[Rfam]
RNA sequence: GCCAGCUGCGCGGGAGAGACCUGGGCUUUUCGAACCGGAAAGCACAGGCGCCGAAGGGGCAAAUCCUCCCCGGAAUCUCUACAGGCAUCAGGGACCGCGCGGGCAGG
Numbered sequence: 001g002c003c004a005g006c007u008g009c010g011c012g013g014g015a016g017a018g019a020c021c022u023g024g025g026c027u028u029u030u031c032g033a034a035c036c037g038g039a040a041a042g043c044a045c046a047g048g049c050g051c052c053g054a055a056g057g058g059g060c061a062a063a064u065c066c067u068c069c070c071c072g073g074a075a076u077c078u079c080u081a082c083a084g085g086c087a088u089c090a091g092g093g094a095c096c097g098c099g100c101g102g103g104c105a106g107g
Base pairs, nucleotide, nucleotide: 006102007101008100009099010098011097012096013095020048021047022046023045050086051085052084053082054080057079058078059077064072